RNA sequence: UUUGUCGAAAUUUUUUUUAAAAUAACAAUAACGUUUUUAAUUUUAUGAAAUAAAACGAAUGAUUAAAAUUUUUAAAAAUAAAGCAUUUUUAAUUUAUUUUCAAAUUUUAAAUAUGUAAAAAGUUUUUGUUAUUUAAUUAAACGUGAACUUUUGAAUAUAUCGUUAUUAAUAAAUUAUUUUUGAUAAACAAAAUUGACGAUGCGAAAUGAAUUAAACGCGAAAUUAAAAUAUCAAAAUGUACGUUUAUUAAACAUCACAAAAAAUGUUAAUUUAUUUUAACAACAAAUAAACAUUAUUCAAAAUUGUUUUAUUUUAAUUUUUUUUCGUUAGUUUUUAAAUAAAACGAUGAUUAUAAAAAUCGAAAUUCGUUAAAAAGUGUGUAACAAUUCAUUUGUCGAAUAAAUUAAUUUUAAAAAUAAAUGAUGUUUAAACGUGUUAUUCAUAUUUCGUCGUUAAAAUAAAAACGAUAUUUUAACGAAUAAACAAACGUAAAGAUUCGUGACGAAAUUUUAAAAAUAAUUUCGAAUAAAACGAUUUUUAAUACAAAU
Numbered sequence: 001u002u003u004g005u006c007g008a009a010a011u012u013u014u015u016u017u018u019a020a021a022a023u024a025a026c027a028a029u030a031a032c033g034u035u036u037u038u039a040a041u042u043u044u045a046u047g048a049a050a051u052a053a054a055a056c057g058a059a060u061g062a063u064u065a066a067a068a069u070u071u072u073u074a075a076a077a078a079u080a081a082a083g084c085a086u087u088u089u090u091a092a093u094u095u096a097u098u099u100u101c102a103a104a105u106u107u108u109a110a111a112u113a114u115g116u117a118a119a120a121a122g123u124u125u126u127u128g129u130u131a132u133u134u135a136a137u138u139a140a141a142c143g144u145g146a147a148c149u150u151u152u153g154a155a156u157a158u159a160u161c162g163u164u165a166u167u168a169a170u171a172a173a174u175u176a177u178u179u180u181u182g183a184u185a186a187a188c189a190a191a192a193u194u195g196a197c198g199a200u201g202c203g204a205a206a207u208g209a210a211u212u213a214a215a216c217g218c219g220a221a222a223u224u225a226a227a228a229u230a231u232c233a234a235a236a237u238g239u240a241c242g243u244u245u246a247u248u249a250a251a252c253a254u255c256a257c258a259a260a261a262a263a264u265g266u267u268a269a270u271u272u273a274u275u276u277u278a279a280c281a282a283c284a285a286a287u288a289a290a291c292a293u294u295a296u297u298c299a300a301a302a303u304u305g306u307u308u309u310a311u312u313u314u315a316a317u318u319u320u321u322u323u324u325c326g327u328u329a330g331u332u333u334u335u336a337a338a339u340a341a342a343a344c345g346a347u348g349a350u351u352a353u354a355a356a357a358a359u360c361g362a363a364a365u366u367c368g369u370u371a372a373a374a375a376g377u378g379u380g381u382a383a384c385a386a387u388u389c390a391u392u393u394g395u396c397g398a399a400u401a402a403a404u405u406a407a408u409u410u411u412a413a414a415a416a417u418a419a420a421u422g423a424u425g426u427u428u429a430a431a432c433g434u435g436u437u438a439u440u441c442a443u444a445u446u447u448c449g450u451c452g453u454u455a456a457a458a459u460a461a462a463a464a465c466g467a468u469a470u471u472u473u474a475a476c477g478a479a480u481a482a483a484c485a486a487a488c489g490u491a492a493a494g495a496u497u498c499g500u501g502a503c504g505a506a507a508u509u510u511u512a513a514a515a516a517u518a519a520u521u522u523c524g525a526a527u528a529a530a531a532c533g534a535u536u537u538u539u540a541a542u543a544c545a546a547a548u
Stems, first nucleotide, its partner, number of pairs: 001487005011024001013022003027167007041120007053108001054106002060102003065097001067095002072092006079085001122148004127143004174196003178192005203212002217450005223444001227440003236437001238436001241433003261411003265408010282395005291368001296363003369373001378387002451477009490540008499532002507527002513522003

Eukaryotic large subunit ribosomal RNA: a 548-nucleotide part of an RNA from Heterodermia speciosa. For this family Rfam cites "Crystal structure of the ribosome at 5.5 A resolution" (Yusupov et al., Science, 2001). Taxonomically the source falls in Heterodermia (Eukaryota, Dikarya, Lecanoromycetes, Lecanoromycetidae).